The family of this 116-nucleotide sequence from Spinacia oleracea is "Small nucleolar RNA SNORA31". Rfam links the family to the GO terms RNA processing and nucleolus. The family's RNA type in Rfam is H/ACA-box small nucleolar RNA.
[Rfam]
Nucleotides: 116
Stems, first nucleotide, its partner, number of pairs: 002056007012045001015043012064108006072099001074098004079093005
Number, partner (000 for none) and nucleotide at each position: 001000u002056g003055g004054c005053g006052g007051u008050c009000a010000c011000u012045a013000a014000c015043u016042u017041a018040g019039u020038g021037a022036c023035u024034g025033c026032u027000u028000u029000c030000g031000a032026g033025g034024c035023g036022g037021u038020c039019a040018c041017u042016a043015a044000u045012u046000u047000a048000g049000u050008g051007a052006c053005u054004g055003c056002c057000u058000a059000a060000g061000c062000a063000g064108u065107c066106a067105c068104u069103a070000a071000a072099u073000u074098a075097g076096u077095g078000a079093c080092u081091g082090c083089c084000u085000u086000g087000g088000u089083g090082g091081c092080g093079g094000u095077c096076a097075c098074u099072a100000a101000a102000u103069u104068a105067g106066u107065g108064a109000u110000u111000g112000c113000u114000u115000u116000u